[Rfam]
RNA sequence: AAUAGAACCUUCGAAGUCAACCAUGUAGACAAAUGAGAAAAUAUCCUUUGUCUGCAGAAGGCAGCUAUCUGACACUAACAUGGAGGUCUGACUUGGACAGCUGGCUAAAACUGAUAGUUCCCCUCCAUACAAC
Numbered sequence: 001a002a003u004a005g006a007a008c009c010u011u012c013g014a015a016g017u018c019a020a021c022c023a024u025g026u027a028g029a030c031a032a033a034u035g036a037g038a039a040a041a042u043a044u045c046c047u048u049u050g051u052c053u054g055c056a057g058a059a060g061g062c063a064g065c066u067a068u069c070u071g072a073c074a075c076u077a078a079c080a081u082g083g084a085g086g087u088c089u090g091a092c093u094u095g096g097a098c099a100g101c102u103g104g105c106u107a108a109a110a111c112u113g114a115u116a117g118u119u120c121c122c123c124u125c126c127a128u129a130c131a132a133c
Base pairs, nucleotide, nucleotide: 004070005069006068009064010063012061024056025055026054027053028052029051030050035047037045082126083125084124085123086122088117090115092113095105
The record is a 133-nucleotide RNA sequence from Cricetulus griseus, which matches "Small Cajal body specific RNA 3" in Rfam. On this family, see Huttenhofer et al., EMBO J 2001: "RNomics: an experimental approach that identifies 201 candidates for novel, small, non-messenger RNAs in mouse". scaRNAs are a specific class of small nuclear RNAs which localise to the Cajal bodies and guide the modification of RNA polymerase II transcribed spliceosomal RNAs U1, U2, U4, U5 and U12. Pairs were carried over by alignment from the consensus structure, which was predicted with RNAalifold. By type it is a small Cajal body RNA. The match comes from Rfam's covariance-model search (87 bits).